[Rfam]
RNA sequence: GUGGGCGGAAGCUCAUUGUAGAGGUCACGUGCUGAGUGCUCAUCACUCCACCAAUCACCUCGGGGAAGGUCUGAGACAGGAGCCAAUAGUCACCCUCGCAGGGUGUCACCUGAUUCAGGUGAGCGAGCGAACAGAAAAUGUGGGUCCUGUGAGCAGCUACAGCAGGAGAGUUCUGGUGGCGCAGUCUCUGCUCCACCGACAGAUGCGGCGCUCACUGGGUUGGAAUCACUCGCGGCUGGCGAAUGAGUGCGAUGGAUGAGGUGGAGCACAGCUCCAGAACCCAACUCAGACUACUCUCCUCCCAC
Numbered sequence: 001g002u003g004g005g006c007g008g009a010a011g012c013u014c015a016u017u018g019u020a021g022a023g024g025u026c027a028c029g030u031g032c033u034g035a036g037u038g039c040u041c042a043u044c045a046c047u048c049c050a051c052c053a054a055u056c057a058c059c060u061c062g063g064g065g066a067a068g069g070u071c072u073g074a075g076a077c078a079g080g081a082g083c084c085a086a087u088a089g090u091c092a093c094c095c096u097c098g099c100a101g102g103g104u105g106u107c108a109c110c111u112g113a114u115u116c117a118g119g120u121g122a123g124c125g126a127g128c129g130a131a132c133a134g135a136a137a138a139u140g141u142g143g144g145u146c147c148u149g150u151g152a153g154c155a156g157c158u159a160c161a162g163c164a165g166g167a168g169a170g171u172u173c174u175g176g177u178g179g180c181g182c183a184g185u186c187u188c189u190g191c192u193c194c195a196c197c198g199a200c201a202g203a204u205g206c207g208g209c210g211c212u213c214a215c216u217g218g219g220u221u222g223g224a225a226u227c228a229c230u231c232g233c234g235g236c237u238g239g240c241g242a243a244u245g246a247g248u249g250c251g252a253u254g255g256a257u258g259a260g261g262u263g264g265a266g267c268a269c270a271g272c273u274c275c276a277g278a279a280c281c282c283a284a285c286u287c288a289g290a291c292u293a294c295u296c297u298c299c300u301c302c303c304a305c
Stems, first nucleotide, its partner, number of pairs: 001305004007299003012260006021061004034048005071289005081237004091105005106122006123233005129227001145219003262276006

Rfam assigns this 305-nucleotide RNA from Channa argus to the family "Nuclear RNase P". Taxonomically the source falls in Channa (Eukaryota, Eumetazoa, Teleostei, Euteleosteomorpha). A search with the family's covariance model found it, with a score of 210 bits. Rfam's curators write: Ribonuclease P (RNase P) is a ubiquitous endoribonuclease, found in archaea, bacteria and eukarya as well as chloroplasts and mitochondria. Pairs were carried over by alignment from the consensus structure, which is taken from published work. Its family is annotated with tRNA processing, ribonuclease P complex and ribonuclease P activity in the Gene Ontology.